The family of this 101-nucleotide RNA sequence from Alkalihalophilus pseudofirmus is "TPP riboswitch aptamer (THI element)". NCBI's taxonomy places the organism under Bacteria, Bacilli, Caryophanales, Alkalihalophilus, Alkalihalophilus pseudofirmus.
[Rfam]
Nucleotides: 101
Stems, first nucleotide, its partner, number of pairs: 006089005011052004017027004034045004057082003063076004
Number, partner (000 for none) and nucleotide at each position: 001000c002000g003000a004000g005000a006089c007088c008087a009086c010085u011052a012051g013050g014049g015000g016000u017027g018026c019025a020024a021000u022000u023000a024020u025019u026018g027017c028000u029000g030000a031000g032000a033000a034045a035044g036043g037042u038000g039000c040000a041000a042037g043036c044035c045034u046000u047000a048000a049014c050013c051012c052011u053000a054000u055000u056000a057082c058081c059080u060000g061000a062000u063076c064075u065074a066073g067000a068000u069000a070000a071000u072000a073066c074065u075064a076063g077000c078000g079000g080059a081058g082057g083000g084000a085010a086009g087008u088007g089006g090000u091000g092000a093000g094000a095000g096000c097000g098000u099000c100000u101000a